[Rfam]
Overview
Rfam assigns this 103-nucleotide RNA sequence from Radiobacillus deserti to the family "Purine riboswitch aptamer". Rfam describes the family as follows. Riboswitches are metabolite binding domains within certain messenger RNAs that serve as precision sensors for their corresponding targets. Pairs were carried over by alignment from the consensus structure, which is taken from published work. Its family is annotated with purine nucleobase biosynthetic process in the Gene Ontology.
RNA sequence: GUGAAAAUAAAAUAGUAGCCUCAUAUAUACUCGAUAAUAAGGGUCGAGAGUCUCUACCAAGAUACCGUAAAUAUCUUGACUAUGCAGGUGGAAGUCUUAGUAU
Numbered sequence: 001g002u003g004a005a006a007a008u009a010a011a012a013u014a015g016u017a018g019c020c021u022c023a024u025a026u027a028u029a030c031u032c033g034a035u036a037a038u039a040a041g042g043g044u045c046g047a048g049a050g051u052c053u054c055u056a057c058c059a060a061g062a063u064a065c066c067g068u069a070a071a072u073a074u075c076u077u078g079a080c081u082a083u084g085c086a087g088g089u090g091g092a093a094g095u096c097u098u099a100g101u102a103u
Base pairs, nucleotide, nucleotide: 018089019088020087021086022084023083024082025081030048031047032046033045034044035043058078059077060076061075062074063073064072